About this RNA
c-di-GMP-I riboswitch aptamer: a 102-nucleotide RNA from Acaryochloris thomasi. A search with the family's covariance model found it, with a score of 39 bits. The organism belongs to Acaryochloris thomasi, within Bacteria. Gene Ontology term of the family: cyclic-di-GMP binding. About the family: GEMM was predicted in a large-scale screen for bacterial structured RNA regulatory elements. Pairs were carried over by alignment from the consensus structure, which is taken from published work.
Nucleotides: 102
Base pairs, nucleotide, nucleotide: 012038013037017033018032019031020030022029023028041096042095043094046091047090049086050085051084056081057080058079059078
Number, partner (000 for none) and nucleotide at each position: 001000u002000c003000c004000c005000c006000g007000a008000a009000a010000a011000g012038g013037c014000a015000a016000c017033u018032u019031a020030u021000u022029c023028c024000g025000a026000a027000a028023g029022g030020a031019u032018a033017a034000g035000a036000c037013g038012c039000a040000a041096a042095c043094u044000c045000g046091c047090a048000g049086u050085c051084c052000u053000a054000a055000a056081u057080c058079a059078c060000c061000a062000u063000c064000a065000g066000g067000u068000a069000a070000g071000a072000a073000u074000g075000a076000a077000g078059g079058u080057g081056a082000a083000u084051g085050g086049a087000c088000g089000a090047u091046g092000c093000c094043a095042g096041u097000a098000c099000c100000g101000a102000a